The family of this 354-nucleotide part of an RNA from Kosmotoga olearia is "Bacterial small subunit ribosomal RNA".
Nucleotides: 354
Stems, first nucleotide, its partner, number of pairs: 001317003009314001011198004016192001018191003022085007030078002032074009045063007089185003093180004100174007107151001111147008122133003159166002203244006212238002217233004255313006263291012295302002319346003328339004
Number, partner (000 for none) and nucleotide at each position: 001317g002316g003315c004000g005000u006000a007000a008000a009314g010000g011198g012197a013196g014195c015000g016192u017000a018191g019190g020189c021000g022085g023084c024083c025082c026081a027080g028079c029000a030078a031077g032074u033073c034072g035071a036070c037069u038068g039067u040066g041000a042000a043000a044000a045063a046062c047061c048060g049059g050058a051057g052000c053000u054000c055000a056000a057051c058050u059049u060048c061047g062046g063045u064000c065000c066040u067039g068038c069037g070036g071035u072034c073033g074032a075000a076000a077031c078030u079028g080027c081026u082025g083024g084023g085022c086000u087000u088000g089185a090184g091183g092000a093180c094179a095178g096177u097000a098000g099000a100174g101173g102172g103171a104170g105169a106168c107151g108000g109000a110000a111147c112146u113145g114144c115143c116142g117141g118140u119000g120000u121000a122133g123132g124131g125000g126000u127000a128000a129000a130000a131124u132123c133122c134000u135000u136000a137000g138000a139000u140118a141117u142116c143115g144114g145113c146112a147111g148000g149000a150000a151107c152000g153000c154000c155000g156000g157000u158000g159166g160165c161000g162000a163000a164000g165160g166159c167000g168106g169105u170104c171103u172102c173101c174100u175000g176000g177096g178095c179094u180093g181000g182000a183091c184090c185089u186000g187000a188000c189020g190019c191018u192016g193000a194000g195014g196013c197012u198011c199000g200000a201000a202000a203244g204243c205242c206241a207240g208239g209000g210000g211000a212238g213237c214000g215000a216000a217233c218232g219231g220230g221000a222000u223000u224000a225000g226000a227000u228000a229000c230220c231219c232218c233217g234000g235000u236000a237213g238212u239208c240207c241206u242205g243204g244203c245000c246000c247000u248000a249000a250000a251000c252000g253000a254000u255313g256312c257311u258310c259309a260308c261000u262000a263291g264290g265289u266288g267287u268286g269285g270284g271283g272282u273281g274280c275000g276000u277000a278000g279000a280274g281273c282272a283271c284270u285269c286268c287267g288266u289265g290264c291263u292000g293000a294000a295302g296301c297000a298000a299000a300000c301296g302295c303000g304000a305000u306000a307000a308260g309259u310258g311257a312256g313255c314009c315003g316002c317001c318000u319346g320345g321344g322000g323000a324000g325000u326000a327000c328339g329338c330337c331336c332000g333000c334000a335000a336331g337330g338329g339328u340000g341000a342000a343000a344321c345320u346319c347000a348000a349000a350000g351000g352000a353000a354000u
Taxonomically the source falls in Kosmotoga olearia (Bacteria, Thermotogota, Kosmotogaceae, Kosmotoga).
The literature on the family includes a 2001 paper in Science by Yusupov et al., "Crystal structure of the ribosome at 5.5 A resolution".
Its Rfam clan is "SSU clan".